[Rfam]
RNA: TPP riboswitch aptamer (THI element)
RNA sequence: AACUAGGCGAGGGGGAGCUCCAUAAGGGGGCUGAGAGGAUCCGGAUGGAUCGACCCCUGGAACCUGAUCCGGGUAAUACCGGCGGAGGGAAUCGUAUGAUGAAUGAGA
Numbered sequence: 001a002a003c004u005a006g007g008c009g010a011g012g013g014g015g016a017g018c019u020c021c022a023u024a025a026g027g028g029g030g031c032u033g034a035g036a037g038g039a040u041c042c043g044g045a046u047g048g049a050u051c052g053a054c055c056c057c058u059g060g061a062a063c064c065u066g067a068u069c070c071g072g073g074u075a076a077u078a079c080c081g082g083c084g085g086a087g088g089g090a091a092u093c094g095u096a097u098g099a100u101g102a103a104u105g106a107g108a
Stems, first nucleotide, its partner, number of pairs: 007095004011057004017031005038051005063088003069082004